[Rfam]
RNA sequence: GCAUGUGUGUGUGUGUGUUUUAGGAAAAUAAAUGCAAAAUUCAAUUUCAAAGGAAAAAUUUCCUGUAAGACUUUGCCAACUGAAAAUUUUGCUUCAUACAAGAGUAAUUCUAGUAGCAGCAGUAGAGAAGAUCAAGCCUGAUGAAAUGUUUUCUUU
Number, nucleotide and partner (000 for none) at each position: 001g016002c015003a014004u013005g012006u011007g000008u000009g000010u000011g006012u005013g004014u003015g002016u001017g000018u000019u000020u000021u000022a000023g000024g000025a000026a000027a156028a155029u000030a000031a152032a000033u000034g149035c148036a000037a000038a000039a000040u000041u141042c140043a139044a000045u136046u135047u134048c000049a132050a000051a000052g000053g000054a000055a000056a000057a000058a000059u131060u130061u129062c000063c127064u126065g000066u000067a000068a000069g000070a123071c122072u121073u000074u119075g000076c000077c116078a000079a114080c113081u000082g110083a109084a108085a000086a000087u104088u103089u102090u101091g000092c000093u000094u000095c000096a000097u000098a000099c000100a000101a090102g089103a088104g087105u000106a000107a000108u084109u083110c082111u000112a000113g080114u079115a000116g077117c000118a000119g074120c000121a072122g071123u070124a000125g000126a064127g063128a000129a061130g060131a059132u049133c000134a047135a046136g045137c000138c000139u043140g042141a041142u000143g000144a000145a000146a000147u000148g035149u034150u000151u000152u031153c000154u000155u028156u027
Rfam assigns this 156-nucleotide RNA to the family "Group II catalytic intron D1-D4-3". Rfam describes the family as follows. Group II introns are found in rRNA, tRNA and mRNA of organelles in fungi, plants and protists, and also in mRNA in bacteria. The base pairs follow the family's consensus structure.